RNA sequence: UGCAAAGCAAUGAACGGACGAAGUAGUCGCUUUUCCCUAUUUCAGAGAGCUGGUGGUCGGUGUGAACCAGUAUAAAAAAGCAGAUGAAUUACAUCCGGGAGCAUAUUCACGCAGGAAAUGGCGUGAACGGUGAAAAAUCGUUAUCUUAUCAAGUGGGAAACUUCGAGCCAAGUUUCCAACAAGGGUGGUACCGCGUAUCCAACGUCCCUUCG
Numbered sequence: 001u002g003c004a005a006a007g008c009a010a011u012g013a014a015c016g017g018a019c020g021a022a023g024u025a026g027u028c029g030c031u032u033u034u035c036c037c038u039a040u041u042u043c044a045g046a047g048a049g050c051u052g053g054u055g056g057u058c059g060g061u062g063u064g065a066a067c068c069a070g071u072a073u074a075a076a077a078a079a080g081c082a083g084a085u086g087a088a089u090u091a092c093a094u095c096c097g098g099g100a101g102c103a104u105a106u107u108c109a110c111g112c113a114g115g116a117a118a119u120g121g122c123g124u125g126a127a128c129g130g131u132g133a134a135a136a137a138u139c140g141u142u143a144u145c146u147u148a149u150c151a152a153g154u155g156g157g158a159a160a161c162u163u164c165g166a167g168c169c170a171a172g173u174u175u176c177c178a179a180c181a182a183g184g185g186u187g188g189u190a191c192c193g194c195g196u197a198u199c200c201a202a203c204g205u206c207c208c209u210u211c212g
Stems, first nucleotide, its partner, number of pairs: 007102002015097004026085003031080001038074003049071006107126006128140003156177007182209004193205004
A member of the RNA family "T-box leader" from Listeria grayi, 212 nucleotides long. It scores 134 bits against the family's covariance model. Lineage of the source: Bacteria > Bacilli > Caryophanales > Listeria > Listeria grayi.